Source information: The record is a 73-nucleotide sequence from Drosophila melanogaster, which matches "mir-310 microRNA precursor family" in Rfam. The sequence is in the family's curated seed alignment. Its Rfam clan is "mir-92 microRNA precursor clan". The family has 23 seed sequences and 60 matches in Rfam 15.1.

RNA sequence: UCAUUUUUCGGACGGUAUAUGGGUUAAUAUUUCAUUUGUCGAAUAUAUUGCACAUUCACCGGCCUGAAAAUAU
Numbered sequence: 001u002c003a004u005u006u007u008u009c010g011g012a013c014g015g016u017a018u019a020u021g022g023g024u025u026a027a028u029a030u031u032u033c034a035u036u037u038g039u040c041g042a043a044u045a046u047a048u049u050g051c052a053c054a055u056u057c058a059c060c061g062g063c064c065u066g067a068a069a070a071u072a073u
Base pairs, nucleotide, nucleotide: 003071004070005069006068007067010064011063013061014060016058020054021053023051025050026049027048028047029046030045